[Rfam]
RNA sequence: CAAUACAAUAGAGGUCGCGAUCGUUCACAAAAGCAAGGGGAGCUCACUGACAGUGUUGAGCCUUGUUAUUAAGGGACAUCGCCGAAAUCAGCAGUGGGGUCGUGCGCGCUGUUGGUUGGGCUGCAGGAGAAAAUUCUGCAGACUGUCCUAGUUUUCUAGGGAGCGCUAUAAUUUUU
Numbered sequence: 001c002a003a004u005a006c007a008a009u010a011g012a013g014g015u016c017g018c019g020a021u022c023g024u025u026c027a028c029a030a031a032a033g034c035a036a037g038g039g040g041a042g043c044u045c046a047c048u049g050a051c052a053g054u055g056u057u058g059a060g061c062c063u064u065g066u067u068a069u070u071a072a073g074g075g076a077c078a079u080c081g082c083c084g085a086a087a088u089c090a091g092c093a094g095u096g097g098g099g100u101c102g103u104g105c106g107c108g109c110u111g112u113u114g115g116u117u118g119g120g121c122u123g124c125a126g127g128a129g130a131a132a133a134u135u136c137u138g139c140a141g142a143c144u145g146u147c148c149u150a151g152u153u154u155u156c157u158a159g160g161g162a163g164c165g166c167u168a169u170a171a172u173u174u175u176u
Base pairs, nucleotide, nucleotide: 008169009168010167011166017082018081019080020079021078023077024076025075026074032067033066034065035064036063037062038061086117087116088115089114090113091112092111093110094109095108096107118144119143121141122140123139124138125137126136127135128134146161147160148159149158150157151156

The record is a 176-nucleotide RNA sequence from Lactobacillus delbrueckii, which matches "Lysine riboswitch aptamer" in Rfam. The organism belongs to Lactobacillus delbrueckii subsp. bulgaricus, within Bacteria. It scores 72 bits against the family's covariance model. The literature on the family includes a 2003 paper in Cell by Mandal et al., "Riboswitches Control Fundamental Biochemical Pathways in Bacillus subtilis and Other Bacteria". Rfam links the family to the GO term lysine biosynthetic process.